[Rfam]
RNA sequence: AAAGUUCUUCGGGGCAGGGUGCAAUUCCCUACCGGCGGUAAAGUCCGCGACCUGCAGGGUUCCGUUUUUAAGAGCGCUGCGGCUGAUUUGGUGAAAUUCCAAAACCGACAGUAAAGUCUGGAUGAGAGAAGAAGCGG
Dot-bracket structure: ....((((((......(((.......))).[[((((((....[[))))...((((((...................))))))....(((((.......)))))]])).(((....]]))).......))))))....
Numbered sequence: 001a002a003a004g005u006u007c008u009u010c011g012g013g014g015c016a017g018g019g020u021g022c023a024a025u026u027c028c029c030u031a032c033c034g035g036c037g038g039u040a041a042a043g044u045c046c047g048c049g050a051c052c053u054g055c056a057g058g059g060u061u062c063c064g065u066u067u068u069u070a071a072g073a074g075c076g077c078u079g080c081g082g083c084u085g086a087u088u089u090g091g092u093g094a095a096a097u098u099c100c101a102a103a104a105c106c107g108a109c110a111g112u113a114a115a116g117u118c119u120g121g122a123u124g125a126g127a128g129a130a131g132a133a134g135c136g137g
Stems, first nucleotide, its partner, number of pairs: 005133006017029003031117002033107002035048004043105002052082006087103005109120003
A member of the RNA family "FMN riboswitch aptamer (RFN element)" from Firmicutes bacterium CAG:534, 137 nucleotides long.
A search with the family's covariance model found it, with a score of 113 bits.